[Rfam]
Rfam assigns this 64-nucleotide RNA sequence from Trypanosoma congolense to the family "Trypanosomatid snoRNA TB11Cs4H2". The family has 6 seed sequences and 156 matches in Rfam 15.1. It scores 66 bits against the family's covariance model. By type it is an H/ACA-box small nucleolar RNA. The organism belongs to Trypanosoma congolense, within Eukaryota. On this family, see Liang et al., RNA 2005: "A genome-wide analysis of C/D and H/ACA-like small nucleolar RNAs in Trypanosoma brucei reveals a trypanosome-specific pattern of rRNA modification".

Nucleotides: 064
Base pairs, nucleotide, nucleotide: 003060004059006057008055017046018045019044020043021042022040023039024038025037026036
Number, partner (000 for none) and nucleotide at each position: 001000a002000c003060g004059g005000c006057g007000c008055g009000c010000a011000u012000u013000g014000a015000g016000a017046c018045c019044c020043g021042c022040c023039g024038c025037u026036c027000c028000a029000u030000a031000g032000a033000g034000g035000u036026g037025g038024g039023c040022g041000c042021g043020u044019g045018g046017g047000a048000g049000c050000a051000u052000c053000c054000g055008c056000g057006c058000u059004c060003c061000a062000a063000g064000a